The family of this 87-nucleotide sequence from Coniella lustricola is "tRNA".

RNA sequence: UCCGAUAUGGUGUAAUGGCUAACAUCCGACGCUCUCACUUACAAGUAAGGGUCCGUCGAGCUCGGGGUUCGAUUCCCCGUAUCGGAG
Numbered sequence: 001u002c003c004g005a006u007a008u009g010g011u012g013u014a015a016u017g018g019c020u021a022a023c024a025u026c027c028g029a030c031g032c033u034c035u036c037a038c039u040u041a042c043a044a045g046u047a048a049g050g051g052u053c054c055g056u057c058g059a060g061c062u063c064g065g066g067g068u069u070c071g072a073u074u075c076c077c078c079g080u081a082u083c084g085g086a087g
Stems, first nucleotide, its partner, number of pairs: 001086007010025004027058005063079005
Dot-bracket structure: (((((((..((((........)))).(((((......................)))))....(((((.......)))))))))))).
It is annotated as a transfer RNA. Its Rfam clan is "tRNA clan".